This 73-nucleotide sequence from Ornatilinea apprima belongs to the Rfam family "Fluoride riboswitch aptamer (crcB RNA motif)". The family's consensus secondary structure is taken from published work.
[Rfam]
RNA sequence: AAUUAAAAAAGCGAUGAGGCUCGCUUGAGAUGUAAUCAAACCGCCGUUUUUGGCUGAUAGCCUCUGUCUUAUU
Numbered sequence: 001a002a003u004u005a006a007a008a009a010a011g012c013g014a015u016g017a018g019g020c021u022c023g024c025u026u027g028a029g030a031u032g033u034a035a036u037c038a039a040a041c042c043g044c045c046g047u048u049u050u051u052g053g054c055u056g057a058u059a060g061c062c063u064c065u066g067u068c069u070u071a072u073u
Base pairs, nucleotide, nucleotide: 010025011024012023013022016064017063018062019061020060021059043054044053045052046051